[Rfam]
RNA sequence: UUAUCACUCACUUUUAUCAGACGGCUGCUUUUGUCGGCGGUGAUAAAAGUUAGCGCUAGAAAACUUCACUAACGCAUUGCUUCGCUGUGGAUAACCGAAGCUAUGCGUUUUUUU
Numbered sequence: 001u002u003a004u005c006a007c008u009c010a011c012u013u014u015u016a017u018c019a020g021a022c023g024g025c026u027g028c029u030u031u032u033g034u035c036g037g038c039g040g041u042g043a044u045a046a047a048a049g050u051u052a053g054c055g056c057u058a059g060a061a062a063a064c065u066u067c068a069c070u071a072a073c074g075c076a077u078u079g080c081u082u083c084g085c086u087g088u089g090g091a092u093a094a095c096c097g098a099a100g101c102u103a104u105g106c107g108u109u110u111u112u113u114u
Stems, first nucleotide, its partner, number of pairs: 002058002005055001007053002010050010071109007079101006089095001
Description:
This 114-nucleotide sequence from Lacticaseibacillus brantae belongs to the Rfam family "23S methyl RNA motif". A reference for the family is Weinberg et al. (2007), "Identification of 22 candidate structured RNAs in bacteria using the CMfinder comparative genomics pipeline", Nucleic Acids Res. The match comes from Rfam's covariance-model search (55 bits).